[Rfam]
permuted transfer-messenger RNA: a 214-nucleotide RNA from Pseudorhodoplanes sinuspersici. The family's consensus secondary structure is taken from published work. From the family's description: Bacterial tmRNA, also known as 10Sa RNA or SsrA, is named for its dual tRNA and mRNA-like properties.
Nucleotides: 214
Stems, first nucleotide, its partner, number of pairs: 001137005014127001017124001026116003030113003036052005053098007138153004
Number, partner (000 for none) and nucleotide at each position: 001137g002136g003135c004134g005133a006000u007000a008000a009000a010000c011000g012000g013000g014127c015000c016000u017124c018000a019000u020000a021000a022000u023000a024000a025000a026116c027115c028114u029000u030113u031112c032111g033000g034000a035000c036052c037051c038050g039049g040048g041000g042000g043000c044000a045000g046000u047000a048040c049039c050038c051037g052036g053098c054097g055096c056095c057094u058093c059092c060000a061000c062000c063000a064000a065000a066000g067000u068000c069000c070000g071000c072000c073000g074000u075000g076000a077000a078000a079000a080000a081000c082000g083000g084000g085000c086000u087000u088000u089000g090000g091000c092059g093058g094057g095056g096055g097054c098053g099000a100000a101000a102000c103000a104000g105000g106000a107000u108000c109000g110000a111032c112031g113030a114028g115027g116026g117000c118000g119000u120000a121000a122000a123000a124017g125000u126000u127014g128000u129000u130000c131000u132000u133005u134004c135003g136002c137001u138153c139152g140151g141150c142000a143000u144000g145000g146000u147000a148000c149000c150141g151140c152139c153138g154000a155000u156000a157000u158000c159000g160000g161000g162000c163000c164000a165000a166000u167000c168000g169000u170000a171000u172000a173000g174000u175000u176000g177000c178000c179000a180000a181000c182000g183000a184000c185000a186000a187000c188000u189000a190000u191000g192000c193000u194000c195000c196000g197000g198000u199000u200000g201000c202000u203000c204000a205000g206000g207000c208000c209000g210000c211000g212000u213000a214000a